[Rfam]
RNA sequence: GUCCGUGUCGUUCUUGUGGUCUGCAGCUCGUGGUCUGGGUCCAGUUGCAUAGUCACAAAAAUGAUCAUGGAC
Numbered sequence: 001g002u003c004c005g006u007g008u009c010g011u012u013c014u015u016g017u018g019g020u021c022u023g024c025a026g027c028u029c030g031u032g033g034u035c036u037g038g039g040u041c042c043a044g045u046u047g048c049a050u051a052g053u054c055a056c057a058a059a060a061a062u063g064a065u066c067a068u069g070g071a072c
Base pairs, nucleotide, nucleotide: 002071003070004069005068006067007066008064009063010062011061012060014058015057016056017055018054019053020052022049023048024047025046026045027044028043
Dot-bracket structure: .(((((((((((.(((((((.(((((((..............)))))))..))))))).))))).)))))).